[Rfam]
RNA sequence: GUCUCCCACUUCACUUUGCCAUGUAGACAGUUCUUGUCUCCAUUGGCCAUUCAGGUGGGGUACAGAGAAUAUCCUUUUAAAACCCAGCCAGUUUAUAUUUAACUGCCUUGGAUCCUGUCAGAGGAAACAGAU
Numbered sequence: 001g002u003c004u005c006c007c008a009c010u011u012c013a014c015u016u017u018g019c020c021a022u023g024u025a026g027a028c029a030g031u032u033c034u035u036g037u038c039u040c041c042a043u044u045g046g047c048c049a050u051u052c053a054g055g056u057g058g059g060g061u062a063c064a065g066a067g068a069a070u071a072u073c074c075u076u077u078u079a080a081a082a083c084c085c086a087g088c089c090a091g092u093u094u095a096u097a098u099u100u101a102a103c104u105g106c107c108u109u110g111g112a113u114c115c116u117g118u119c120a121g122a123g124g125a126a127a128c129a130g131a132u
Base pairs, nucleotide, nucleotide: 035062036061037060038059039058043054044053045052046051072125073124074123075122076121077120085110086108087107089105090104091103092102093101
Shown here is a 132-nucleotide sequence from Pogona vitticeps, a member of the family "Small nucleolar RNA SNORA27".
ACA27 is a member of the H/ACA class of snoRNA that guide the sites of modification of uridines to pseudouridines.
The family has 24 seed sequences and 819 matches in Rfam 15.1.